RNA sequence: AUCUGGAUGUGUAACUGGCGAGAACGUAGAUUACUACGGGGGAGCACAUCUAUCAUACGAGCCGUUCGCCUGGGCAAAGCAU
Numbered sequence: 001a002u003c004u005g006g007a008u009g010u011g012u013a014a015c016u017g018g019c020g021a022g023a024a025c026g027u028a029g030a031u032u033a034c035u036a037c038g039g040g041g042g043a044g045c046a047c048a049u050c051u052a053u054c055a056u057a058c059g060a061g062c063c064g065u066u067c068g069c070c071u072g073g074g075c076a077a078a079g080c081a082u
Stems, first nucleotide, its partner, number of pairs: 004052009015041002017070005026037004061075003